[Rfam]
RNA sequence: AGCUUUGCGCAGUGGCAGUAUCGUAGCCAAUGAGGUUUAUCCGAGGCGCGAUUAUUGCUAAUUGAAAAAGUGAUUGUUAUAAAAAUAAUUUUGCAGUAAAUUGAAAGUUUUUUUCAUUUCCCACAGAGA
Numbered sequence: 001a002g003c004u005u006u007g008c009g010c011a012g013u014g015g016c017a018g019u020a021u022c023g024u025a026g027c028c029a030a031u032g033a034g035g036u037u038u039a040u041c042c043g044a045g046g047c048g049c050g051a052u053u054a055u056u057g058c059u060a061a062u063u064g065a066a067a068a069a070g071u072g073a074u075u076g077u078u079a080u081a082a083a084a085a086u087a088a089u090u091u092u093g094c095a096g097u098a099a100a101u102u103g104a105a106a107g108u109u110u111u112u113u114u115c116a117u118u119u120c121c122c123a124c125a126g127a128g129a
Stems, first nucleotide, its partner, number of pairs: 020052005026047003034042002083114003087110002090107003094103003